[Rfam]
RNA sequence: UAAUCAAGUGGUGAUGGGGCUCACCAAAACCGCCCGCGAGGGAUGAUGGCUCCUGCAACGUA
Numbered sequence: 001u002a003a004u005c006a007a008g009u010g011g012u013g014a015u016g017g018g019g020c021u022c023a024c025c026a027a028a029a030c031c032g033c034c035c036g037c038g039a040g041g042g043a044u045g046a047u048g049g050c051u052c053c054u055g056c057a058a059c060g061u062a
Stems, first nucleotide, its partner, number of pairs: 010025004016053006033042003
RNA: Fluoride riboswitch aptamer (crcB RNA motif)